[Rfam]
RNA sequence: AUCUUGGUGCAAGGGCAUUACGCAUAUCAGUGAGGAUUCGUCCGAGAUUGCGUUUUUGCUAGUUGAAAACUACAACUAAUGACCGCUCCUGUUGGUCCUCGUGAUCGGCAGGGAAUUUUUGGAAACUUUCAGA
Numbered sequence: 001a002u003c004u005u006g007g008u009g010c011a012a013g014g015g016c017a018u019u020a021c022g023c024a025u026a027u028c029a030g031u032g033a034g035g036a037u038u039c040g041u042c043c044g045a046g047a048u049u050g051c052g053u054u055u056u057u058g059c060u061a062g063u064u065g066a067a068a069a070c071u072a073c074a075a076c077u078a079a080u081g082a083c084c085g086c087u088c089c090u091g092u093u094g095g096u097c098c099u100c101g102u103g104a105u106c107g108g109c110a111g112g113g114a115a116u117u118u119u120u121g122g123a124a125a126c127u128u129u130c131a132g133a
Base pairs, nucleotide, nucleotide: 020053021052022051023050024049026048027047028046034043035042036041087113088112089111090110091109092108093107094106095105096104097103
Rfam assigns this 133-nucleotide RNA from Aplosporella prunicola to the family "U4 spliceosomal RNA". It scores 105 bits against the family's covariance model. Rfam classes the family as a spliceosomal small nuclear RNA. About the family: U4 small nuclear RNA (U4 snRNA) is a component of the major U2-dependent spliceosome. Pairs were carried over by alignment from the consensus structure, which is taken from published work.